[Rfam]
RNA sequence: GCCGGGUACAGUGGCAUGCGCCUCUAGUCCCAACUACUCGGAAGGCUGAGGCAGGAGGAUCACUUGAGCCCAGGAAUUUUGGGCUGUAGGGUGCUAUGCCGAACAGGUGUCUGCAGUAAGUUUGGCAUCAAUAUGGUGACCUCCCGGGAACGGGGGACCACCAGGUUGCCUAAGGAGGGGUGAACCGGCUCAGGUCGGAAACGGAACAGGUCAAAACUCCUGUGCUGAUCAGUAGUAGGAUCGUGCCUAUGAAUAGUCAACUGCACUCCCGGCCUGGGCAACAUAGCGAGAUCCUGUCUCUA
Numbered sequence: 001g002c003c004g005g006g007u008a009c010a011g012u013g014g015c016a017u018g019c020g021c022c023u024c025u026a027g028u029c030c031c032a033a034c035u036a037c038u039c040g041g042a043a044g045g046c047u048g049a050g051g052c053a054g055g056a057g058g059a060u061c062a063c064u065u066g067a068g069c070c071c072a073g074g075a076a077u078u079u080u081g082g083g084c085u086g087u088a089g090g091g092u093g094c095u096a097u098g099c100c101g102a103a104c105a106g107g108u109g110u111c112u113g114c115a116g117u118a119a120g121u122u123u124g125g126c127a128u129c130a131a132u133a134u135g136g137u138g139a140c141c142u143c144c145c146g147g148g149a150a151c152g153g154g155g156g157a158c159c160a161c162c163a164g165g166u167u168g169c170c171u172a173a174g175g176a177g178g179g180g181u182g183a184a185c186c187g188g189c190u191c192a193g194g195u196c197g198g199a200a201a202c203g204g205a206a207c208a209g210g211u212c213a214a215a216a217c218u219c220c221u222g223u224g225c226u227g228a229u230c231a232g233u234a235g236u237a238g239g240a241u242c243g244u245g246c247c248u249a250u251g252a253a254u255a256g257u258c259a260a261c262u263g264c265a266c267u268c269c270c271g272g273c274c275u276g277g278g279c280a281a282c283a284u285a286g287c288g289a290g291a292u293c294c295u296g297u298c299u300c301u302a
Base pairs, nucleotide, nucleotide: 001046002045003044004023005022006021007020009018010017028043030041048300049299050298051297052296053295054294055293056292060289061288063286064285068279069278070277071276072275073274074273079272080271081270082268083267085265086264087263088262089261091258093257094256095255096254097253099251103250105248106247107246108245109244110243111239112238115236117234118233120230122228123227124226125225126224127223128222129168130167131166132165134163135162136161137160138159141156142155143154144153145152146151169175170174176221177220178219179218180217181216187212188211189210190209195204196203197202
Dot-bracket structure: (((((((.((......)).))))....(.(..........).)))).(((((((((...((.((...(((((((....(((((.(((((.(.(((((.(...(.((((((((..(.((.(.(((((((((((.(((((..((((((....))))))..))))).))))((...))((((((.....((((....(((....)))....))))...))))))))))))).)..)).).))...)))))).)).))))))..))))).)).)))))))))).....)).))..)))))))))..
Shown here is a 302-nucleotide RNA from Pteropus vampyrus, a member of the family "Metazoan signal recognition particle RNA". The match comes from Rfam's covariance-model search (213 bits). For this family Rfam cites "Crystal structure of the ribonucleoprotein core of the signal recognition particle" (Batey et al., Science, 2000). Pairs were carried over by alignment from the consensus structure, which is taken from published work. It is annotated as a non-coding RNA gene.